Small nucleolar RNA snoR138: a 156-nucleotide RNA sequence from Aegilops tauschii. Taxonomically the source falls in Aegilops tauschii (Eukaryota, Viridiplantae, Triticodae, Triticeae). It scores 52 bits against the family's covariance model.

RNA sequence: UGUGCCUCUUGAAUAACCAUCUGCUGCUAUUAGUAUAUCUGCAUUUGGUUCAGACAGGGGGCACAUAACAAAUGUAAUCUUUUGAGGGAAUGGAUGUGUUUUCUGUUCAUCCCUUCUUAGAAUGAUUUUAACAUUAAUUGGUUAUUGCGUACAAAU
Numbered sequence: 001u002g003u004g005c006c007u008c009u010u011g012a013a014u015a016a017c018c019a020u021c022u023g024c025u026g027c028u029a030u031u032a033g034u035a036u037a038u039c040u041g042c043a044u045u046u047g048g049u050u051c052a053g054a055c056a057g058g059g060g061g062c063a064c065a066u067a068a069c070a071a072a073u074g075u076a077a078u079c080u081u082u083u084g085a086g087g088g089a090a091u092g093g094a095u096g097u098g099u100u101u102u103c104u105g106u107u108c109a110u111c112c113c114u115u116c117u118u119a120g121a122a123u124g125a126u127u128u129u130a131a132c133a134u135u136a137a138u139u140g141g142u143u144a145u146u147g148c149g150u151a152c153a154a155a156u
Stems, first nucleotide, its partner, number of pairs: 003063005009057001015050005022043001024041001026039001073149006080122003085117003089114001093111004098106001130143003